[Rfam]
RNA sequence: CUGUGUUCCAGCCUAUGGUUCACGGCAGAAAGGAA
Numbered sequence: 001c002u003g004u005g006u007u008c009c010a011g012c013c014u015a016u017g018g019u020u021c022a023c024g025g026c027a028g029a030a031a032g033g034a035a
Stems, first nucleotide, its partner, number of pairs: 001025005008018003
Rfam assigns this 35-nucleotide sequence from Hutsoniella sourekii to the family "L31-Firmicutes ribosomal protein leader".
Lineage of the source: Bacteria > Lactobacillales > Aerococcaceae > Hutsoniella > Hutsoniella sourekii.
Clan: Ribosomal Protein L31 Leader clan.